[Rfam]
RNA sequence: CUUCCAAUGAUGAAGAAUUCCGGAUGUUAAACAGUAUACCUCCGAGAGCGCAAACCCCAUGUGGAGAUUUCCGUUGCCUUCCUUCUGAUCAGGAC
Numbered sequence: 001c002u003u004c005c006a007a008u009g010a011u012g013a014a015g016a017a018u019u020c021c022g023g024a025u026g027u028u029a030a031a032c033a034g035u036a037u038a039c040c041u042c043c044g045a046g047a048g049c050g051c052a053a054a055c056c057c058c059a060u061g062u063g064g065a066g067a068u069u070u071c072c073g074u075u076g077c078c079u080u081c082c083u084u085c086u087g088a089u090c091a092g093g094a095c
Stems, first nucleotide, its partner, number of pairs: 001093002021073004